[Rfam]
RNA sequence: CUUCGUGGUCUUCCACAGCUUUCUUGAACUGCAAAUUCAUUAAGCUUGCUCGACGUGCAGUUCAAUAAAGCUGUGGGAAAUUACAGAGA
Numbered sequence: 001c002u003u004c005g006u007g008g009u010c011u012u013c014c015a016c017a018g019c020u021u022u023c024u025u026g027a028a029c030u031g032c033a034a035a036u037u038c039a040u041u042a043a044g045c046u047u048g049c050u051c052g053a054c055g056u057g058c059a060g061u062u063c064a065a066u067a068a069a070g071c072u073g074u075g076g077g078a079a080a081u082u083a084c085a086g087a088g089a
Base pairs, nucleotide, nucleotide: 003086005084006083007082013076014075015074017072018071019070020069021068022067024065025064026063027062029060030059031058032057033056
RNA: MIR396 microRNA precursor family
Organism: Zingiber officinale